The family of this 90-nucleotide RNA sequence from Solanum tuberosum is "small nucleolar RNA snoR114". Rfam 15.1 lists 1,645 matches to the family in 183 species. It scores 51 bits against the family's covariance model. Rfam classes the family as a C/D-box small nucleolar RNA. The base pairs follow the family's consensus structure, which was predicted with RNAalifold.
RNA sequence: GAGCCGUGAGGAGAUAUAUGCGUCUUAUGCGGUGAUUUGGGUCUCCGCAAUUGUCUGAUUCUAAGACGAUUCAAUAGCGCAUCUGAGCUC
Numbered sequence: 001g002a003g004c005c006g007u008g009a010g011g012a013g014a015u016a017u018a019u020g021c022g023u024c025u026u027a028u029g030c031g032g033u034g035a036u037u038u039g040g041g042u043c044u045c046c047g048c049a050a051u052u053g054u055c056u057g058a059u060u061c062u063a064a065g066a067c068g069a070u071u072c073a074a075u076a077g078c079g080c081a082u083c084u085g086a087g088c089u090c
Base pairs, nucleotide, nucleotide: 001090002089003088004087